[Rfam]
This 142-nucleotide RNA sequence from Melissococcus plutonius belongs to the Rfam family "Enterococcus sRNA 68 (Lacto-3 RNA)".
The sequence is in the family's curated seed alignment.
On this family, see Innocenti et al., RNA 2015: "Whole-genome mapping of 5' RNA ends in bacteria by tagged sequencing: a comprehensive view in Enterococcus faecalis".
The family's consensus secondary structure is taken from published work.
RNA sequence: UGCGACGAGUUGACGCAAUCAGAUAGCGCUUAUUGUAGGCUGUUUCGUUUUUACGACUUGUGAUUGGUUGAUUGCAGUGACAUAGAUGGAAACAUCACCUGCCGGAUUGUAGGAUGUUGUGUUUGUUUAUUUUGUGGAAGAU
Numbered sequence: 001u002g003c004g005a006c007g008a009g010u011u012g013a014c015g016c017a018a019u020c021a022g023a024u025a026g027c028g029c030u031u032a033u034u035g036u037a038g039g040c041u042g043u044u045u046c047g048u049u050u051u052u053a054c055g056a057c058u059u060g061u062g063a064u065u066g067g068u069u070g071a072u073u074g075c076a077g078u079g080a081c082a083u084a085g086a087u088g089g090a091a092a093c094a095u096c097a098c099c100u101g102c103c104g105g106a107u108u109g110u111a112g113g114a115u116g117u118u119g120u121g122u123u124u125g126u127u128u129a130u131u132u133u134g135u136g137g138a139a140g141a142u
Stems, first nucleotide, its partner, number of pairs: 017065005022044006045056004078119005098113005129142001131141003